[Rfam]
The record is an 88-nucleotide sequence from Chlamydomonas schloesseri, which matches "Small nucleolar RNA Z159/U59" in Rfam. The literature on the family includes a 2003 paper in Nucleic Acids Res by Chen et al., "The high diversity of snoRNAs in plants: identification and comparative study of 120 snoRNA genes from Oryza sativa".

RNA sequence: ACCGUGGAAGAUGAUUCAAAUUGAUGCAUUUCCACAUCGGGCCCACAGCCCAUGAGGAAAAACCUUUGGAGACCUGAACUGACACGCU
Numbered sequence: 001a002c003c004g005u006g007g008a009a010g011a012u013g014a015u016u017c018a019a020a021u022u023g024a025u026g027c028a029u030u031u032c033c034a035c036a037u038c039g040g041g042c043c044c045a046c047a048g049c050c051c052a053u054g055a056g057g058a059a060a061a062a063c064c065u066u067u068g069g070a071g072a073c074c075u076g077a078a079c080u081g082a083c084a085c086g087c088u
Stems, first nucleotide, its partner, number of pairs: 003086004